tRNA: a 79-nucleotide RNA from Clohesyomyces aquaticus.
It is annotated as a transfer RNA.
The family's consensus secondary structure is taken from published work.
The source organism's lineage runs through Eukaryota, Fungi, leotiomyceta, dothideomyceta and Clohesyomyces.
[Rfam]
RNA sequence: UCCCCCUUGGCUUAGUGGUAAAGCAUAUCACUAGCACCAUGGUAUGAUAAGAUCACCAGUUCGAUUCUUGUAGGGGGUA
Numbered sequence: 001u002c003c004c005c006c007u008u009g010g011c012u013u014a015g016u017g018g019u020a021a022a023g024c025a026u027a028u029c030a031c032u033a034g035c036a037c038c039a040u041g042g043u044a045u046g047a048u049a050a051g052a053u054c055a056c057c058a059g060u061u062c063g064a065u066u067c068u069u070g071u072a073g074g075g076g077g078u079a
Base pairs, nucleotide, nucleotide: 002077003076004075005074006073007072010024011023012022013021026049027048028047029046030045055071056070058068059067